[Rfam]
RNA sequence: AGCUUUGCACAGUGGCAGCAUCGUAGCCAAUGAGGUUUACCUGAGGCGCGAUGAUUGCUAACUAAACCUUGGUCCACAUUCUUAAAUAACAAUACAACCUGCCCUUCCCCUCUCUCCACGUGCUCUCACUCUGCUCAUGUGUGAUUUGUUAGUUUUAUGUCUAUUAUGACAUUGCGGUU
Numbered sequence: 001a002g003c004u005u006u007g008c009a010c011a012g013u014g015g016c017a018g019c020a021u022c023g024u025a026g027c028c029a030a031u032g033a034g035g036u037u038u039a040c041c042u043g044a045g046g047c048g049c050g051a052u053g054a055u056u057g058c059u060a061a062c063u064a065a066a067c068c069u070u071g072g073u074c075c076a077c078a079u080u081c082u083u084a085a086a087u088a089a090c091a092a093u094a095c096a097a098c099c100u101g102c103c104c105u106u107c108c109c110c111u112c113u114c115u116c117c118a119c120g121u122g123c124u125c126u127c128a129c130u131c132u133g134c135u136c137a138u139g140u141g142u143g144a145u146u147u148g149u150u151a152g153u154u155u156u157a158u159g160u161c162u163a164u165u166a167u168g169a170c171a172u173u174g175c176g177g178u179u
Stems, first nucleotide, its partner, number of pairs: 020052005026047003034042002084155003087151006095143002168179003
The record is a 179-nucleotide sequence from Cnephaeus nilssonii, which matches "U4 spliceosomal RNA" in Rfam. For this family Rfam cites "Crystal structure of the spliceosomal 15.5kD protein bound to a U4 snRNA fragment" (Vidovic et al., Mol Cell, 2000). The source organism's lineage runs through Eukaryota, Metazoa, Laurasiatheria, Vespertilionidae and Cnephaeus. Pairs were carried over by alignment from the consensus structure, which is taken from published work.